[Rfam]
Record summary
A member of the RNA family "Selenocysteine insertion sequence 4" from Hominibacterium faecale, 38 nucleotides long. The source organism's lineage runs through Bacteria, Bacillati, Clostridia, Peptostreptococcales and Hominibacterium. Rfam classes the family as a cis-regulatory element. The base pairs follow the family's consensus structure, which was predicted with PFOLD. For this family Rfam cites "Molecular analysis of the grd operon coding for genes of the glycine reductase and of the thioredoxin system from Clostridium sticklandii" (Graentzdoerffer et al., Arch Microbiol, 2001). It scores 45 bits against the family's covariance model.
RNA sequence: GGGACCUGUACUCGUUGCGGCGCAACGAUCGUAAAGCA
Numbered sequence: 001g002g003g004a005c006c007u008g009u010a011c012u013c014g015u016u017g018c019g020g021c022g023c024a025a026c027g028a029u030c031g032u033a034a035a036g037c038a
Stems, first nucleotide, its partner, number of pairs: 005031001013027006